Record summary: The family of this 183-nucleotide RNA sequence from Solilutibacter oculi is "6S / SsrS RNA". A reference for the family is Wassarman and Storz (2000), "6S RNA regulates E. coli RNA polymerase activity", Cell. By type it is a non-coding RNA gene. Lineage of the source: Bacteria > Pseudomonadati > Pseudomonadota > Lysobacterales > Solilutibacter.
RNA sequence: UGUCCUCUGCCUUGAGCGACAGCGUGCAAAACAUUCGCCUUGUCCCUUAAGAACGACACCGGGGCUGCAACCCGGCCCGGCGUGCAUGUCCGCCACGAGCGGAAAGCCCGACGGCCAGCGAGCAAUCCCACUUGAACCCGCAGGUUCAAGGUCGUUUCGCCGCAUCGCCACGGCGGAGGAUGC
Numbered sequence: 001u002g003u004c005c006u007c008u009g010c011c012u013u014g015a016g017c018g019a020c021a022g023c024g025u026g027c028a029a030a031a032c033a034u035u036c037g038c039c040u041u042g043u044c045c046c047u048u049a050a051g052a053a054c055g056a057c058a059c060c061g062g063g064g065c066u067g068c069a070a071c072c073c074g075g076c077c078c079g080g081c082g083u084g085c086a087u088g089u090c091c092g093c094c095a096c097g098a099g100c101g102g103a104a105a106g107c108c109c110g111a112c113g114g115c116c117a118g119c120g121a122g123c124a125a126u127c128c129c130a131c132u133u134g135a136a137c138c139c140g141c142a143g144g145u146u147c148a149a150g151g152u153c154g155u156u157u158c159g160c161c162g163c164a165u166c167g168c169c170a171c172g173g174c175g176g177a178g179g180a181u182g183c
Stems, first nucleotide, its partner, number of pairs: 002181010013170002017167003037152003041148002045144002061129003066124003072118001074116002077114002084107002089103005